A member of the RNA family "c-di-GMP-I-GGC riboswitch aptamer" from Thiorhodococcus minor, 93 nucleotides long. Lineage of the source: Bacteria > Pseudomonadati > Pseudomonadota > Chromatiales > Thiorhodococcus. Gene Ontology term of the family: cyclic-di-GMP binding. The base pairs follow the family's consensus structure, which is taken from published work.
[Rfam]
RNA sequence: UCCGACAAAGGCAAACUGUCCGAAAGGGCAGGACGCAAAGCCACUGGCCUAAGCCCCGAGCAACCUCGGGAGACGGCAGCAGGGCUACCGAAG
Numbered sequence: 001u002c003c004g005a006c007a008a009a010g011g012c013a014a015a016c017u018g019u020c021c022g023a024a025a026g027g028g029c030a031g032g033a034c035g036c037a038a039a040g041c042c043a044c045u046g047g048c049c050u051a052a053g054c055c056c057c058g059a060g061c062a063a064c065c066u067c068g069g070g071a072g073a074c075g076g077c078a079g080c081a082g083g084g085c086u087a088c089c090g091a092a093g
Base pairs, nucleotide, nucleotide: 001093003090004089011036012035016031017030018029019028020027021026034079039086040085041084042083044082045081046080047077048076049075